[Rfam]
RNA: U5 spliceosomal RNA
Organism: Apaloderma vittatum
RNA sequence: GUACUCUGGUUUCUCUUCACAUCAUAUAAAUCUUUCACCUUUUACUAAAGUUUUCCGUGGAGAGGAACAAUUUUUUUUUUUGGAUAUUGGGAAAAACUUCUUCACCGAAAGGGUG
Numbered sequence: 001g002u003a004c005u006c007u008g009g010u011u012u013c014u015c016u017u018c019a020c021a022u023c024a025u026a027u028a029a030a031u032c033u034u035u036c037a038c039c040u041u042u043u044a045c046u047a048a049a050g051u052u053u054u055c056c057g058u059g060g061a062g063a064g065g066a067a068c069a070a071u072u073u074u075u076u077u078u079u080u081u082g083g084a085u086a087u088u089g090g091g092a093a094a095a096a097c098u099u100c101u102u103c104a105c106c107g108a109a110a111g112g113g114u115g
Stems, first nucleotide, its partner, number of pairs: 009068011028054003032050004095114001097112003